[Rfam]
RNA sequence: UGCCUUUGUGUUACCCAUUCACUAUCUCCCACAGUGAACGUGGUGUCAAAAAAGGCAUACAAGAACUCUUGCUGAAAAGGUUUUGGGAGAUGGUUAUGUACUCUUUCCCUCCACAAUUUUGCAAGGACAGAA
Numbered sequence: 001u002g003c004c005u006u007u008g009u010g011u012u013a014c015c016c017a018u019u020c021a022c023u024a025u026c027u028c029c030c031a032c033a034g035u036g037a038a039c040g041u042g043g044u045g046u047c048a049a050a051a052a053a054g055g056c057a058u059a060c061a062a063g064a065a066c067u068c069u070u071g072c073u074g075a076a077a078a079g080g081u082u083u084u085g086g087g088a089g090a091u092g093g094u095u096a097u098g099u100a101c102u103c104u105u106u107c108c109c110u111c112c113a114c115a116a117u118u119u120u121g122c123a124a125g126g127a128c129a130g131a132a
Stems, first nucleotide, its partner, number of pairs: 002056006009048002012045004016040001018038006068125005074119003082115001084113004089107001092103002
RNA: Small nucleolar RNA SNORA13